Shown here is a 129-nucleotide RNA sequence from Myotis lucifugus, a member of the family "Small nucleolar RNA SNORA65". It scores 75 bits against the family's covariance model. Its Rfam clan is "SNORA65 clan". Pairs were carried over by alignment from the consensus structure, which was predicted with RNAalifold. Rfam links the family to the GO terms RNA processing and nucleolus. By type it is an H/ACA-box small nucleolar RNA. The family has 14 seed sequences and 1,089 matches in Rfam 15.1. On this family, see Huttenhofer et al., EMBO J 2001: "RNomics: an experimental approach that identifies 201 candidates for novel, small, non-messenger RNAs in mouse".
[Rfam]
RNA sequence: CCCACCCCAUACCUUACCAGUUGUCUGUUGGCUGGUGCAAUCCAGUAGUGAGCUAAUUCCAAAUUCCAGCUUAGGAAACAGGCUUGUUCUACAUGUGCAUAGCUCUGUGCAGAAAGCAUGGGAACAGUC
Numbered sequence: 001c002c003c004a005c006c007c008c009a010u011a012c013c014u015u016a017c018c019a020g021u022u023g024u025c026u027g028u029u030g031g032c033u034g035g036u037g038c039a040a041u042c043c044a045g046u047a048g049u050g051a052g053c054u055a056a057u058u059c060c061a062a063a064u065u066c067c068a069g070c071u072u073a074g075g076a077a078a079c080a081g082g083c084u085u086g087u088u089c090u091a092c093a094u095g096u097g098c099a100u101a102g103c104u105c106u107g108u109g110c111a112g113a114a115a116g117c118a119u120g121g122g123a124a125c126a127g128u129c
Stems, first nucleotide, its partner, number of pairs: 005048001008045001016036005022030002065122004069117004075110001079107004084102001087099001089097001